[Rfam]
RNA: Small nucleolar RNA Z122
RNA sequence: UUGGGAAUGUGAUGAUGAUCUUUCGCCAUUUCUGACUUCUACUGCGGAAAAAAUCUCACAUCGAUUUGCACGUCAGUCUGAUUACCAG
Numbered sequence: 001u002u003g004g005g006a007a008u009g010u011g012a013u014g015a016u017g018a019u020c021u022u023u024c025g026c027c028a029u030u031u032c033u034g035a036c037u038u039c040u041a042c043u044g045c046g047g048a049a050a051a052a053a054u055c056u057c058a059c060a061u062c063g064a065u066u067u068g069c070a071c072g073u074c075a076g077u078c079u080g081a082u083u084a085c086c087a088g
Stems, first nucleotide, its partner, number of pairs: 001088004006083002